[Rfam]
RNA: Vault RNA
RNA sequence: GCGUUAGUUUAGCUCAGUGGUUACUUCUCAGCAUCAGAAAGCUCUUCCAGCCUUCGUCAGAGGGUUCGAACCACGGGCGCUGUCUAGCGCUUUU
Numbered sequence: 001g002c003g004u005u006a007g008u009u010u011a012g013c014u015c016a017g018u019g020g021u022u023a024c025u026u027c028u029c030a031g032c033a034u035c036a037g038a039a040a041g042c043u044c045u046u047c048c049a050g051c052c053u054u055c056g057u058c059a060g061a062g063g064g065u066u067c068g069a070a071c072c073a074c075g076g077g078c079g080c081u082g083u084c085u086a087g088c089g090c091u092u093u094u
Stems, first nucleotide, its partner, number of pairs: 002089006012078004017074004025070003